[Rfam]
RNA: Eukaryotic large subunit ribosomal RNA, nucleotides 2244 to 2777
RNA sequence: UAGAACAAUGUAGGUAAGGGAAGUCGGCAAAAUGGAUCCGUAACUUCGGGAGAAGGAUUGGCUCUGAGGGCCGAGCGACCCGCUGCUAGCUUCGGAAGAGGGAAUCAUAGAGCGGGAGUCCGCGAGGUGGCAUAUUAAUUUGGACUUGGGCGCACCGAACGGCGAACGUUCUACCCUCGGAAGGGCAGGCGGACGGAGCGGGGUAGGGGCGACUCUCCUCGUUUUCGGCACGGGCGCGAGGAACGGCUCGAUCAGAACUGGCACGGUCCGGGGGAAUCCGACUGUUUAGUAAAAACAUAGCGUUUCGAAGGCCGGAGAUCGGUGUUGACGGAACGUGAUUUCUGCCCAGUGCUCUGAAUGUCACGGUGAAGAAAUUUACGGAAGCGCGGGUAAACGGCGGGAGUAACUAUGACUCUCUUAAGGUAGCCAAAUGCCUCGUCAUGUAAUUAGUGACGCGCAUGAAUGGAUUAACGAGAUUCCCACUGUCCCUAUCUACUAUCUAGCGAAGCCACAGCCGGAGGAACGGGUCCGGGG
Number, nucleotide and partner (000 for none) at each position: 001u502002a501003g500004a499005a000006c000007a000008a000009u000010g496011u495012a494013g493014g492015u491016a490017a000018g488019g487020g486021a000022a000023g000024u000025c000026g000027g000028c000029a000030a000031a000032a000033u000034g000035g059036a058037u057038c056039c055040g000041u000042a000043a000044c049045u000046u000047c000048g000049g044050g000051a000052g000053a000054a000055g039056g038057a037058u036059u035060g259061g258062c000063u256064c255065u254066g253067a252068g000069g248070g247071c246072c245073g244074a000075g237076c236077g235078a000079c234080c233081c232082g231083c000084u000085g190086c189087u188088a000089g186090c185091u184092u183093c000094g000095g000096a000097a000098g178099a177100g176101g175102g000103a000104a000105u000106c000107a000108u173109a172110g171111a170112g169113c168114g167115g000116g000117a000118g163119u000120c162121c161122g160123c000124g000125a000126g156127g155128u154129g153130g000131c000132a000133u000134a000135u000136u000137a000138a000139u000140u000141u000142g000143g000144a000145c000146u000147u000148g000149g000150g000151c000152g000153c129154a128155c127156c126157g000158a000159a000160c122161g121162g120163c118164g000165a000166a000167c114168g113169u112170u111171c110172u109173a108174c000175c101176c100177u099178c098179g000180g000181a000182a000183g092184g091185g090186c089187a000188g087189g086190c085191g000192g000193a000194c000195g000196g000197a000198g000199c000200g000201g000202g000203g000204u000205a000206g000207g000208g000209g000210c000211g000212a000213c000214u000215c000216u000217c000218c000219u000220c000221g000222u000223u000224u000225u000226c000227g000228g000229c000230a000231c082232g081233g080234g079235c077236g076237c075238g000239a000240g000241g000242a000243a000244c073245g072246g071247c070248u069249c000250g000251a000252u067253c066254a065255g064256a063257a000258c061259u060260g264261g000262c000263a000264c260265g000266g000267u000268c000269c000270g000271g000272g481273g480274g479275a478276a477277u476278c475279c473280g472281a000282c000283u297284g296285u295286u000287u000288a000289g000290u000291a000292a000293a000294a000295a285296c284297a283298u000299a000300g336301c335302g334303u333304u332305u331306c330307g329308a000309a325310g000311g323312c322313c321314g320315g000316a000317g000318a000319u000320c314321g313322g312323u311324g000325u309326u000327g000328a000329c307330g306331g305332a304333a303334c302335g301336u300337g000338a000339u000340u467341u466342c465343u000344g398345c397346c396347c000348a000349g395350u394351g391352c390353u389354c388355u000356g387357a000358a000359u386360g385361u384362c000363a000364c000365g000366g379367u378368g377369a376370a375371g000372a000373a000374a000375u370376u369377u368378a367379c366380g000381g000382a000383a000384g361385c360386g359387c356388g354389g353390g352391u351392a000393a000394a350395c349396g346397g345398c344399g417400g416401g415402a414403g413404u412405a000406a000407c000408u000409a000410u000411g000412a404413c403414u402415c401416u400417c399418u422419u000420a000421a000422g418423g000424u000425a000426g000427c000428c000429a000430a000431a000432u000433g000434c000435c000436u000437c000438g454439u453440c452441a451442u450443g000444u000445a000446a000447u000448u000449a000450g442451u441452g440453a439454c438455g000456c000457g000458c000459a000460u000461g000462a000463a000464u000465g342466g341467a340468u000469u000470a000471a000472c280473g279474a000475g278476a277477u276478u275479c274480c273481c272482a000483c000484u000485g000486u020487c019488c018489c000490u016491a015492u014493c013494u012495a011496c010497u000498a000499u004500c003501u002502a001503g000504c000505g000506a000507a000508g000509c000510c000511a000512c000513a000514g000515c532516c531517g530518g529519a528520g000521g000522a000523a000524c000525g000526g000527g000528u519529c518530c517531g516532g515533g000534g000